[Rfam]
Description: This 69-nucleotide RNA sequence from Lingula anatina belongs to the Rfam family "mir-87 microRNA precursor family". Its family is annotated with RISC complex and miRNA-mediated post-transcriptional gene silencing in the Gene Ontology. The match comes from Rfam's covariance-model search (58 bits). Pairs were carried over by alignment from the consensus structure, which was predicted with RNAalifold.

RNA sequence: GCCUGACGUGCCUGAAAUUUUGACUCAAGCCUGAUAGUAAGGUGAGCAAAGUUUCAGGUGUGUCAGUCU
Numbered sequence: 001g002c003c004u005g006a007c008g009u010g011c012c013u014g015a016a017a018u019u020u021u022g023a024c025u026c027a028a029g030c031c032u033g034a035u036a037g038u039a040a041g042g043u044g045a046g047c048a049a050a051g052u053u054u055c056a057g058g059u060g061u062g063u064c065a066g067u068c069u
Stems, first nucleotide, its partner, number of pairs: 003066005009060007017052005024046004030042003